[Rfam]
RNA sequence: AUACGUUCUCGGGGCGGGGUGAAACUCCCCACCGGCGGUAAUCAGGCGGCGUCGCCCGACGUCUUCUGUAGCCCGCGAGCGCCCGGUCUGCCUUUCAGGUGAGCCGGGGUCAGCAGACCUGGUGUGAUUCCGGGGCCGACGGUCAUAGUCCGGAUGAAAGAGAACGGGA
Numbered sequence: 001a002u003a004c005g006u007u008c009u010c011g012g013g014g015c016g017g018g019g020u021g022a023a024a025c026u027c028c029c030c031a032c033c034g035g036c037g038g039u040a041a042u043c044a045g046g047c048g049g050c051g052u053c054g055c056c057c058g059a060c061g062u063c064u065u066c067u068g069u070a071g072c073c074c075g076c077g078a079g080c081g082c083c084c085g086g087u088c089u090g091c092c093u094u095u096c097a098g099g100u101g102a103g104c105c106g107g108g109g110u111c112a113g114c115a116g117a118c119c120u121g122g123u124g125u126g127a128u129u130c131c132g133g134g135g136c137c138g139a140c141g142g143u144c145a146u147a148g149u150c151c152g153g154a155u156g157a158a159a160g161a162g163a164a165c166g167g168g169a
Stems, first nucleotide, its partner, number of pairs: 004166007017029003031149002033138002035076004071136002079114002118134005140152003

Annotation: This 169-nucleotide sequence from Herbaspirillum seropedicae belongs to the Rfam family "FMN riboswitch aptamer (RFN element)". Gene Ontology term of the family: FMN binding. About the family: The RFN element is a highly conserved domain that is found frequently in the 5'-untranslated regions of prokaryotic mRNAs that encode for flavin mononucleotide (FMN) biosynthesis and transport proteins. This element is a metabolite-dependent riboswitch that directly binds FMN in the absence of proteins. In Bacillus subtilis, the riboswitch most likely controls gene expression by causing premature transcription termination within the 5' untranslated region of the ribDEAHT operon and precluding access to the ribosome-binding site of ypaA mRNA.The FMN riboswitch structure, reported in present an FMN-bound six-stem junction, adopts a butterfly-like scaffold, stapled together by opposingly directed but nearly identically folded peripheral domains. Lineage of the source: Bacteria > Pseudomonadati > Oxalobacteraceae > Herbaspirillum > Herbaspirillum seropedicae. It scores 107 bits against the family's covariance model.